[Rfam]
RNA sequence: UGCUGUCUUCGAGGCGGGGUGAAAUUCCCCACCGGUGGUAAAAGUCCACAAGCUUCGGCUGAUCGGGUGCAACUCCCGAACCGACGGUACAGUCCGGAUGAAAGAAGAUGUAC
Numbered sequence: 001u002g003c004u005g006u007c008u009u010c011g012a013g014g015c016g017g018g019g020u021g022a023a024a025u026u027c028c029c030c031a032c033c034g035g036u037g038g039u040a041a042a043a044g045u046c047c048a049c050a051a052g053c054u055u056c057g058g059c060u061g062a063u064c065g066g067g068u069g070c071a072a073c074u075c076c077c078g079a080a081c082c083g084a085c086g087g088u089a090c091a092g093u094c095c096g097g098a099u100g101a102a103a104g105a106a107g108a109u110g111u112a113c
Stems, first nucleotide, its partner, number of pairs: 004110007017029003031093002033083002035049004044081002052059002063079005085096003
This 113-nucleotide sequence from Eubacterium sp. CAG:180 belongs to the Rfam family "FMN riboswitch aptamer (RFN element)". Its family is annotated with FMN binding in the Gene Ontology. Lineage of the source: Bacteria > Bacillota > Eubacteriales > Eubacteriaceae > Eubacterium.